[Rfam]
This 130-nucleotide RNA from Equus caballus belongs to the Rfam family "Small nucleolar RNA SNORA3/SNORA45 family". It scores 82 bits against the family's covariance model. The members of this family belong to the H/ACA class of snoRNAs which are thought to guide the sites of modification of uridines to pseudouridines. This family includes mouse snoMBI-28 and human homologues ACA3 (SNORA3) and ACA3-2 (SNORA45). Both ACA3 and ACA3-2 share the same host gene. MBI-28, ACA3 and ACA3-2 are all predicted to guide the pseudouridylation of residues in 28S rRNA. Rfam links the family to the GO terms RNA processing and nucleolus. NCBI's taxonomy places the organism under Eukaryota, Eumetazoa, Craniata, Eutheria, Equus. Pairs were carried over by alignment from the consensus structure, which was predicted with RNAalifold.
RNA sequence: CCUGAUACUAGAGUCACAAGCUGACAUAGCUCUGGUCCUGGUGUGCUGGAGUCUUUGGAGAGAAUCUGCUGCUCUUGAUUCACCAGUGAGGGCAAUCAGUGCCCCCAGUAGUGCCCAGAUCAGAGCAUGU
Numbered sequence: 001c002c003u004g005a006u007a008c009u010a011g012a013g014u015c016a017c018a019a020g021c022u023g024a025c026a027u028a029g030c031u032c033u034g035g036u037c038c039u040g041g042u043g044u045g046c047u048g049g050a051g052u053c054u055u056u057g058g059a060g061a062g063a064a065u066c067u068g069c070u071g072c073u074c075u076u077g078a079u080u081c082a083c084c085a086g087u088g089a090g091g092g093c094a095a096u097c098a099g100u101g102c103c104c105c106c107a108g109u110a111g112u113g114c115c116c117a118g119a120u121c122a123g124a125g126c127a128u129g130u
Stems, first nucleotide, its partner, number of pairs: 002058004007052003012047002015045004023037003069123003073119003077115001081113003085109001088106001090104004